[Rfam]
RNA: Eukaryotic large subunit ribosomal RNA, nucleotides 1370 to 1792
Organism: Babesia bovis
RNA sequence: GGUAGUAGCAACUAUUCAAGCGAGAUCCUUGAAGGCCGAUGUGGAGCAGGGUUCCAUGGGAACAUUGCUUGGCCAUGGUUUAGCCGGUCCUAAACGCCAGCCUCUCGGCGCCGACGCGAGCUUCGCUCCUUUGCGUGACAGGGCAUCAGGUUAACAUUCCUGAGCCGGGUCGUGGAUCGGUGGCAACACAAGCUGGCUUGGCUCCGUUCGUGCAUGCCCCGGCAAGCGUUGUCUUUGCUUGUUAACAGGCGCCUGCCCGUGGAAUCGCUUUACGCGGCGAUACGGGUUUGCUCCUGGCAUUGCAGGUCACCUUUCGACCUGUCCGGUGCGCCUGCAAGAGCCCCUGAAGCGCCAAGCCAGUGUUCCACCCCCGUCCGUACCGAUAACCGCAUCAGGUCUCCUAGGUUAGCAGCCUCUGGUCGA
Numbered sequence: 001g002g003u004a005g006u007a008g009c010a011a012c013u014a015u016u017c018a019a020g021c022g023a024g025a026u027c028c029u030u031g032a033a034g035g036c037c038g039a040u041g042u043g044g045a046g047c048a049g050g051g052u053u054c055c056a057u058g059g060g061a062a063c064a065u066u067g068c069u070u071g072g073c074c075a076u077g078g079u080u081u082a083g084c085c086g087g088u089c090c091u092a093a094a095c096g097c098c099a100g101c102c103u104c105u106c107g108g109c110g111c112c113g114a115c116g117c118g119a120g121c122u123u124c125g126c127u128c129c130u131u132u133g134c135g136u137g138a139c140a141g142g143g144c145a146u147c148a149g150g151u152u153a154a155c156a157u158u159c160c161u162g163a164g165c166c167g168g169g170u171c172g173u174g175g176a177u178c179g180g181u182g183g184c185a186a187c188a189c190a191a192g193c194u195g196g197c198u199u200g201g202c203u204c205c206g207u208u209c210g211u212g213c214a215u216g217c218c219c220c221g222g223c224a225a226g227c228g229u230u231g232u233c234u235u236u237g238c239u240u241g242u243u244a245a246c247a248g249g250c251g252c253c254u255g256c257c258c259g260u261g262g263a264a265u266c267g268c269u270u271u272a273c274g275c276g277g278c279g280a281u282a283c284g285g286g287u288u289u290g291c292u293c294c295u296g297g298c299a300u301u302g303c304a305g306g307u308c309a310c311c312u313u314u315c316g317a318c319c320u321g322u323c324c325g326g327u328g329c330g331c332c333u334g335c336a337a338g339a340g341c342c343c344c345u346g347a348a349g350c351g352c353c354a355a356g357c358c359a360g361u362g363u364u365c366c367a368c369c370c371c372c373g374u375c376c377g378u379a380c381c382g383a384u385a386a387c388c389g390c391a392u393c394a395g396g397u398c399u400c401c402u403a404g405g406u407u408a409g410c411a412g413c414c415u416c417u418g419g420u421c422g423a
Stems, first nucleotide, its partner, number of pairs: 015033006034421004043401004049381002054078006063071002085377003089142002094136002096112001098110001100109003116129001118127001146163005166373004172368004176363002180189003197356006206341004211336004216331002219326003222242006246296004256286006265277004303321006387396002403415004